[Rfam]
RNA: c-di-GMP-I riboswitch aptamer
Organism: Bacillus sp. AFS018417
RNA sequence: CAUCGAGAAAGGCAAACUUAUGGAAACAUAGGGUCGCAAAACUAUAGGGGCUAAGGUUGAAAUGGACUAAGCUAGCCAGUUACCGGA
Numbered sequence: 001c002a003u004c005g006a007g008a009a010a011g012g013c014a015a016a017c018u019u020a021u022g023g024a025a026a027c028a029u030a031g032g033g034u035c036g037c038a039a040a041a042c043u044a045u046a047g048g049g050g051c052u053a054a055g056g057u058u059g060a061a062a063u064g065g066a067c068u069a070a071g072c073u074a075g076c077c078a079g080u081u082a083c084c085g086g087a
Stems, first nucleotide, its partner, number of pairs: 012037002017032006040081004047077002049073003056067003